[Rfam]
RNA sequence: GUCCUCAUCAAGGCUGUGUUUCCGGGCUACAUACAGAACGGCUGCGCUCGUAGCAGCAGUUCAUCAGCUUCGUGCAAGUUGUAUUUUCUUGCCCGUGAGAAAUUCGGAGUACGCUUCAAACUCACCUGUGCCUCACCCUACGUGGGGGCUUCCACAGGUCUGUCCGUGAGGACCUCGCGUGAUAUCACGCCUGUGAUUGGCAUCAGAGACGCAGGGCCUUCCCUUCUGCGUAUCCCCGAAAGGGGACGGCGGUCGAGGUUGGUUCCUAUGGGAGGGUCGUCACGAAGCUUGUGCGGAUCACUUCAGUGCAAUACACAGCCUCUUCUAUAGAGAAUUCAAUUCCGAUCACUCUGAUGGGGAC
Number, nucleotide and partner (000 for none) at each position: 001g361002u360003c359004c358005u000006c000007a000008u354009c353010a352011a000012g000013g319014c318015u317016g316017u315018g314019u313020u000021u000022c000023c095024g094025g093026g092027c000028u000029a000030c000031a000032u000033a000034c000035a000036g000037a085038a000039c000040g000041g000042c000043u000044g000045c000046g000047c000048u000049c000050g000051u000052a000053g000054c000055a000056g000057c000058a000059g000060u000061u000062c000063a000064u000065c000066a000067g000068c000069u000070u000071c000072g000073u000074g000075c000076a000077a000078g000079u000080u000081g000082u000083a000084u000085u037086u000087u000088c000089u000090u000091g000092c026093c025094c024095g023096u000097g000098a000099g000100a000101a000102a000103u000104u000105c344106g343107g342108a341109g340110u000111a000112c000113g000114c287115u286116u285117c284118a000119a000120a000121c000122u000123c000124a000125c000126c000127u000128g000129u000130g000131c000132c000133u000134c000135a000136c000137c000138c000139u000140a000141c000142g000143u000144g000145g000146g000147g000148g000149c000150u000151u000152c000153c000154a000155c000156a000157g000158g000159u000160c000161u000162g173163u172164c171165c170166g000167u000168g000169a000170g165171g164172a163173c162174c000175u000176c000177g190178c189179g188180u187181g000182a000183u000184a000185u000186c000187a180188c179189g178190c177191c000192u000193g283194u282195g281196a280197u000198u000199g278200g277201c276202a000203u000204c000205a000206g000207a000208g000209a000210c000211g000212c000213a000214g267215g266216g265217c000218c000219u000220u000221c000222c000223c000224u000225u000226c000227u000228g000229c000230g000231u000232a000233u000234c000235c000236c000237c000238g000239a000240a000241a000242g000243g000244g000245g000246a000247c000248g000249g000250c000251g000252g000253u000254c000255g000256a000257g000258g000259u000260u000261g000262g000263u000264u000265c216266c215267u214268a000269u000270g000271g000272g000273a000274g000275g000276g201277u200278c199279g000280u196281c195282a194283c193284g117285a116286a115287g114288c000289u000290u000291g000292u000293g000294c000295g000296g000297a000298u000299c000300a000301c000302u000303u000304c000305a000306g000307u000308g000309c000310a000311a000312u000313a019314c018315a017316c016317a015318g014319c013320c332321u331322c330323u329324u000325c000326u000327a000328u000329a323330g322331a321332g320333a000334a000335u000336u000337c000338a000339a000340u109341u108342c107343c106344g105345a000346u000347c000348a000349c000350u000351c000352u010353g009354a008355u000356g000357g000358g004359g003360a002361c001
The family of this 361-nucleotide RNA from Xylaria multiplex is "Nuclear RNase P". Gene Ontology terms of the family: tRNA processing, ribonuclease P activity and ribonuclease P complex. Rfam describes the family as follows. Ribonuclease P (RNase P) is a ubiquitous endoribonuclease, found in archaea, bacteria and eukarya as well as chloroplasts and mitochondria. Pairs were carried over by alignment from the consensus structure, which is taken from published work.